The record is a 98-nucleotide RNA sequence from Agrobacterium tumefaciens, which matches "Alphaproteobacterial ar15" in Rfam.
The family's RNA type in Rfam is small RNA.
Rfam 15.1 lists 316 matches to the family in 177 species.

RNA sequence: GGCUGUCACGCUCGCUCAGGCACGCGACAGCUGUUCCCCUCUGGAGGUUUUGACCUUCAAACUUAUCAGGCCGCGGGAAAUAUCCAGCGGCCUUUUUU
Numbered sequence: 001g002g003c004u005g006u007c008a009c010g011c012u013c014g015c016u017c018a019g020g021c022a023c024g025c026g027a028c029a030g031c032u033g034u035u036c037c038c039c040u041c042u043g044g045a046g047g048u049u050u051u052g053a054c055c056u057u058c059a060a061a062c063u064u065a066u067c068a069g070g071c072c073g074c075g076g077g078a079a080a081u082a083u084c085c086a087g088c089g090g091c092c093u094u095u096u097u098u
Base pairs, nucleotide, nucleotide: 001032002031003030004029005028007026009024042059043058044057045056046055047054048053068093069092070091071090072089073088075085076084077083
The source organism's lineage runs through Bacteria, Pseudomonadati, Pseudomonadota, Hyphomicrobiales and Agrobacterium tumefaciens complex. For this family Rfam cites "A survey of sRNA families in alpha-proteobacteria" (del Val et al., RNA Biol, 2012).